[Rfam]
RNA sequence: GAAGACGCCCAUGAGCGGUGUGGUGCCCCAACCGGGAGCGACUUUACCGUAUUCAGAAUUC
Number, nucleotide and partner (000 for none) at each position: 001g000002a000003a000004g000005a000006c000007g000008c000009c000010c000011a000012u000013g000014a000015g000016c000017g045018g044019u000020g042021u041022g000023g039024u038025g000026c036027c035028c000029c000030a000031a000032c000033c000034g000035g027036g026037a000038g024039c023040g000041a021042c020043u000044u018045u017046a000047c000048c000049g000050u000051a000052u000053u000054c000055a000056g000057a000058a000059u000060u000061c000
Plastid-psbN 5UTR RNA: a 61-nucleotide sequence from Picosynechococcus sp. PCC 7002.
A reference for the family is Richter et al. (2023), "Retrograde signaling in plants: A critical review focusing on the GUN pathway and beyond", Plant Commun.
Plastid psbN is a non-coding RNA (ncRNA) recognised in plastids. It was reported as a conserved 11 stem-loop in the prime untranslated region (5UTR) of psbN genes. It has been reported that the motif is retained in a subset of mature transcripts in barley, which can suggests a possible role in transcript alternative 5 prime processing.
Rfam 15.1 lists 2,345 matches to the family in 397 species.
By type it is a cis-regulatory element.